[Rfam]
Background: Bacterial large subunit ribosomal RNA: a 435-nucleotide part of an RNA from Olsenella sp. oral taxon 809. On this family, see Yusupov et al., Science 2001: "Crystal structure of the ribosome at 5.5 A resolution". Taxonomically the source falls in Olsenella sp. oral taxon 809 (Bacteria, Actinomycetota, Coriobacteriales, Olsenella).
RNA sequence: CUCCCCGAAAUAGCUUUAGGGCUAGCCUCGGACGUUUACCUGCGGAGGUAGAGCACUGGAUGGUUGCGGGGGCCUCACCGCCUACCAAGACCAACCAAACUCCGAAUGCCGCAGGUCCAGAGUCCGGGAGUCAGAACAUGUGGGCUAAGCCGUGUGUUCGAAAGGGAAACAGCCCAGACCGCCCGCUAAGGUCCCGAAAUCCAUGCUGAGUGGCAAAGGAUGUGCGUUUGCUCAGACAACCAGGAUGUUGGCUUAGAAGCAGCCAUUCAUUUAAAGAGUGCGUAAUAGCUCACUGGUCGAGUGGACAUGCGCCGACAAUAUACGGGGCUAAGCAUGGUACCGAAGCGGCGGACCGAUUCAAUCGGUGGUAGGGGAGCUUUCCGUCUGGGGCGAAGCCGCGGGACGACCCGCGGUGGACCGGCCGGAAGUGAGAAU
Numbered sequence: 001c002u003c004c005c006c007g008a009a010a011u012a013g014c015u016u017u018a019g020g021g022c023u024a025g026c027c028u029c030g031g032a033c034g035u036u037u038a039c040c041u042g043c044g045g046a047g048g049u050a051g052a053g054c055a056c057u058g059g060a061u062g063g064u065u066g067c068g069g070g071g072g073c074c075u076c077a078c079c080g081c082c083u084a085c086c087a088a089g090a091c092c093a094a095c096c097a098a099a100c101u102c103c104g105a106a107u108g109c110c111g112c113a114g115g116u117c118c119a120g121a122g123u124c125c126g127g128g129a130g131u132c133a134g135a136a137c138a139u140g141u142g143g144g145c146u147a148a149g150c151c152g153u154g155u156g157u158u159c160g161a162a163a164g165g166g167a168a169a170c171a172g173c174c175c176a177g178a179c180c181g182c183c184c185g186c187u188a189a190g191g192u193c194c195c196g197a198a199a200u201c202c203a204u205g206c207u208g209a210g211u212g213g214c215a216a217a218g219g220a221u222g223u224g225c226g227u228u229u230g231c232u233c234a235g236a237c238a239a240c241c242a243g244g245a246u247g248u249u250g251g252c253u254u255a256g257a258a259g260c261a262g263c264c265a266u267u268c269a270u271u272u273a274a275a276g277a278g279u280g281c282g283u284a285a286u287a288g289c290u291c292a293c294u295g296g297u298c299g300a301g302u303g304g305a306c307a308u309g310c311g312c313c314g315a316c317a318a319u320a321u322a323c324g325g326g327g328c329u330a331a332g333c334a335u336g337g338u339a340c341c342g343a344a345g346c347g348g349c350g351g352a353c354c355g356a357u358u359c360a361a362u363c364g365g366u367g368g369u370a371g372g373g374g375a376g377c378u379u380u381c382c383g384u385c386u387g388g389g390g391c392g393a394a395g396c397c398g399c400g401g402g403a404c405g406a407c408c409c410g411c412g413g414u415g416g417a418c419c420g421g422c423c424g425g426a427a428g429u430g431a432g433a434a435u
Stems, first nucleotide, its partner, number of pairs: 001376006011024005026130001027128007036121001038116008051103001052101002057097003061093004068086002070083004134159010164175003179351004184347003190341003199338001201337006218313002222310003226306006239297005245270003250264003271275001276291001280289002352366006377430001379427005385421004395414008